[Rfam]
The record is a 91-nucleotide sequence, which matches "S4-Clostridia ribosomal protein leader" in Rfam.
On this family, see Eckert and Weinberg, BMC Microbiol 2020: "Discovery of 20 novel ribosomal leader candidates in bacteria and archaea".
It is annotated as a cis-regulatory leader.

Nucleotides: 091
Base pairs, nucleotide, nucleotide: 005032006031007030008029010027011026012025013024014023033083034082035081036080037079038078039077
Number, partner (000 for none) and nucleotide at each position: 001000g002000a003000a004000a005032g006031g007030g008029u009000a010027u011026g012025c013024a014023c015000a016000g017000u018000u019000u020000u021000u022000a023014g024013u025012g026011c027010a028000g029008g030007c031006c032005u033083g034082g035081a036080u037079g038078u039077u040000u041000g042000g043000a044000u045000g046000a047000u048000g049000g050000c051000a052000g053000a054000a055000g056000c057000a058000c059000c060000u061000u062000u063000c064000u065000g066000g067000c068000a069000g070000c071000c072000u073000g074000a075000g076000g077039a078038a079037c080036a081035u082034c083033c084000c085000a086000g087000u088000u089000a090000g091000g